[Rfam]
Nucleotides: 153
Base pairs, nucleotide, nucleotide: 003044004043005042006041007040011038012037013036014035018031019030020029021028022027046056047055058088059087060086061085067080068079069078070077071076103152104151105150106149108146109145111143112142113141118136119135122132123131124130
Number, partner (000 for none) and nucleotide at each position: 001000a002000a003044u004043c005042g006041g007040u008000g009000u010000a011038c012037g013036a014035u015000a016000c017000c018031g019030g020029g021028g022027a023000c024000u025000u026000g027022u028021c029020c030019c031018c032000a033000c034000c035014a036013u037012u038011g039000a040007g041006c042005c043004g044003a045000g046056g047055g048000g049000a050000a051000c052000g053000a054000g055047c056046c057000c058088c059087a060086g061085u062000a063000a064000c065000a066000g067080c068079a069078u070077c071076c072000g073000a074000a075000a076071g077070g078069g079068u080067g081000g082000a083000a084000a085061a086060c087059u088058g089000a090000a091000a092000a093000a094000g095000c096000a097000a098000a099000c100000g101000g102000a103152g104151g105150g106149u107000g108146g109145a110000g111143u112142u113141u114000g115000g116000u117000a118136g119135g120000u121000u122132u123131c124130c125000u126000u127000a128000u129000u130124g131123g132122a133000u134000u135119c136118u137000c138000g139000a140000a141113g142112a143111a144000g145109u146108c147000a148000g149106g150105c151104c152103c153000g
Rfam assigns this 153-nucleotide sequence to the family "RT-3 RNA".
Pairs were carried over by alignment from the consensus structure, which is taken from published work.
Rfam's curators put it in the seed alignment.